[Rfam]
RNA sequence: ACGAGGCACUCAUCACGAAGGAUCGUCCGGCACGUACCUGCCGGUGAAGGAGUAGAAA
Dot-bracket structure: .........((.(((...........((((((......)))))))))..)).......